[Rfam]
Small nucleolar RNA Z247: a 139-nucleotide RNA sequence from Sorghum bicolor. It is annotated as a C/D-box small nucleolar RNA. On this family, see Chen et al., Nucleic Acids Res 2003: "The high diversity of snoRNAs in plants: identification and comparative study of 120 snoRNA genes from Oryza sativa".

RNA sequence: CAUCUUGAAGAUGAAGAGAUGGUGUCAUAUAUUCUCACCGGCUUGGAUGAGGACUAUGACACGGUGGUGACGGGUGUGGCCAAUAGAGCUGAACCCAUCUCCCUUGGCGAGCUGUACACACAGCUGAUCAGCCGUGAAU
Numbered sequence: 001c002a003u004c005u006u007g008a009a010g011a012u013g014a015a016g017a018g019a020u021g022g023u024g025u026c027a028u029a030u031a032u033u034c035u036c037a038c039c040g041g042c043u044u045g046g047a048u049g050a051g052g053a054c055u056a057u058g059a060c061a062c063g064g065u066g067g068u069g070a071c072g073g074g075u076g077u078g079g080c081c082a083a084u085a086g087a088g089c090u091g092a093a094c095c096c097a098u099c100u101c102c103c104u105u106g107g108c109g110a111g112c113u114g115u116a117c118a119c120a121c122a123g124c125u126g127a128u129c130a131g132c133c134g135u136g137a138a139u
Stems, first nucleotide, its partner, number of pairs: 005137003088108005